[Rfam]
RNA sequence: UUUUAAUGUUAGUAGAACAAAAACCUCAUAACCUGGUCAGGACAGAAAUGUAGCAGCCAUAUUGAGAAGUGCUGUGUCUGCUAACUUUUUUGUUAAU
Numbered sequence: 001u002u003u004u005a006a007u008g009u010u011a012g013u014a015g016a017a018c019a020a021a022a023a024c025c026u027c028a029u030a031a032c033c034u035g036g037u038c039a040g041g042a043c044a045g046a047a048a049u050g051u052a053g054c055a056g057c058c059a060u061a062u063u064g065a066g067a068a069g070u071g072c073u074g075u076g077u078c079u080g081c082u083a084a085c086u087u088u089u090u091u092g093u094u095a096a097u
Base pairs, nucleotide, nucleotide: 004092005091006090008088009084010083011082012081013080014079017075018074019073022070025066026065027064028063034059035058036057037056042051043050044049
RNA: Bacterial small signal recognition particle RNA
Organism: Mycoplasmopsis maculosa